[Rfam]
RNA sequence: ACCUGUCCGGGGCACCGCUCUGCGGUGUCCGGGGCAACAGACACAGACCGUGCCACGGGAAGAUCUGGGCACAUCAGGGCGUU
Dot-bracket structure: ...(((((.(((((((.......))))))).))))).............(((((..(.......)..)))))...........
nrdJ RNA: an 83-nucleotide RNA from Streptomyces genisteinicus. The organism belongs to Streptomyces, within Bacteria. It is annotated as a small RNA.